This 83-nucleotide sequence from Aquimarina intermedia belongs to the Rfam family "Flavo-1 RNA".
RNA sequence: UACUUGCGUAAGCGAUAGCAAUGACAUCCUUUUUAUAGUUUUAAAAAAACCGUAAAAAGAUAUAAUGGAUAGCGCGACCCAAA
Number, nucleotide and partner (000 for none) at each position: 001u000002a000003c000004u000005u000006g000007c000008g000009u000010a000011a000012g075013c074014g073015a000016u071017a070018g000019c000020a000021a066022u065023g000024a000025c000026a061027u060028c059029c000030u000031u000032u056033u055034u054035a053036u052037a000038g050039u049040u048041u047042u000043a000044a000045a000046a000047a041048a040049a039050c038051c000052g036053u035054a034055a033056a032057a000058a000059g028060a027061u026062a000063u000064a000065a022066u021067g000068g000069a000070u017071a016072g000073c014074g013075c012076g000077a000078c000079c000080c000081a000082a000083a000
The family's RNA type in Rfam is small RNA. Lineage of the source: Bacteria > Pseudomonadati > Flavobacteriia > Flavobacteriales > Aquimarina. The match comes from Rfam's covariance-model search (54 bits).